[Rfam]
RNA sequence: AGACUAGGCGUUGACAAUACGCUUUAGAUCUUGACGGGGUGCGGGACUCCCUUUAGAAUCCCGUACCCUUAAUUUGGGCAAAGUAUAUGCUUUGUCCGUUUUAAUGUCGUAAGACAACAGUGGAGCAAAUAAA
Dot-bracket structure: (((.........................))).....(((.((((((..(......)..)))))).))).......(((((((((....)))))))))....((.((((....))).........)....))..
Numbered sequence: 001a002g003a004c005u006a007g008g009c010g011u012u013g014a015c016a017a018u019a020c021g022c023u024u025u026a027g028a029u030c031u032u033g034a035c036g037g038g039g040u041g042c043g044g045g046a047c048u049c050c051c052u053u054u055a056g057a058a059u060c061c062c063g064u065a066c067c068c069u070u071a072a073u074u075u076g077g078g079c080a081a082a083g084u085a086u087a088u089g090c091u092u093u094g095u096c097c098g099u100u101u102u103a104a105u106g107u108c109g110u111a112a113g114a115c116a117a118c119a120g121u122g123g124a125g126c127a128a129a130u131a132a133a
Stems, first nucleotide, its partner, number of pairs: 001031003037068003041064006049056001076097009102131002105125001106115003